[Rfam]
RNA sequence: AUCAGACAGCACAACGGCUUGGGAGGCAGAAAUCAUGUUCGUCGAUAAUGUGGUGCUCGCAGGGGUAGUCACGGUCGGCCUGAUGGUCGUCUUCCUCGGCGGUUUCGGAUAUUUCAUCUGGAAGGAUGCGCAAAAGAAGCGUUGAUCCCGCUGGUGUUACAGAGCACGCAAGGCAUUUAGGGCGACUUAGGUCGCCCCUUUUUCUG
Numbered sequence: 001a002u003c004a005g006a007c008a009g010c011a012c013a014a015c016g017g018c019u020u021g022g023g024a025g026g027c028a029g030a031a032a033u034c035a036u037g038u039u040c041g042u043c044g045a046u047a048a049u050g051u052g053g054u055g056c057u058c059g060c061a062g063g064g065g066u067a068g069u070c071a072c073g074g075u076c077g078g079c080c081u082g083a084u085g086g087u088c089g090u091c092u093u094c095c096u097c098g099g100c101g102g103u104u105u106c107g108g109a110u111a112u113u114u115c116a117u118c119u120g121g122a123a124g125g126a127u128g129c130g131c132a133a134a135a136g137a138a139g140c141g142u143u144g145a146u147c148c149c150g151c152u153g154g155u156g157u158u159a160c161a162g163a164g165c166a167c168g169c170a171a172g173g174c175a176u177u178u179a180g181g182g183c184g185a186c187u188u189a190g191g192u193c194g195c196c197c198c199u200u201u202u203u204c205u206g
Stems, first nucleotide, its partner, number of pairs: 007101001010098001050060003077088004164174002167172001180197007
This 206-nucleotide RNA sequence from Stutzerimonas stutzeri belongs to the Rfam family "PhrS".
By type it is a small RNA.
Rfam links the family to the GO term quorum sensing.
A reference for the family is Livny et al. (2006), "Identification of 17 Pseudomonas aeruginosa sRNAs and prediction of sRNA-encoding genes in 10 diverse pathogens using the bioinformatic tool sRNAPredict2", Nucleic Acids Res.
The base pairs follow the family's consensus structure, which was predicted with CMfinder.